[Rfam]
RNA sequence: UCCUUGGAGAAUUACACCAAACUAGAGUAGAAUAAGCAAUUAUUUGAAAUAGAAUUCUAUGAACAGGAAA
Numbered sequence: 001u002c003c004u005u006g007g008a009g010a011a012u013u014a015c016a017c018c019a020a021a022c023u024a025g026a027g028u029a030g031a032a033u034a035a036g037c038a039a040u041u042a043u044u045u046g047a048a049a050u051a052g053a054a055u056u057c058u059a060u061g062a063a064c065a066g067g068a069a070a
Stems, first nucleotide, its partner, number of pairs: 001068004009057005022052003030045003
Shown here is a 70-nucleotide RNA sequence from Clostridium liquoris, a member of the family "RAGATH-18 RNA". A search with the family's covariance model found it, with a score of 60 bits.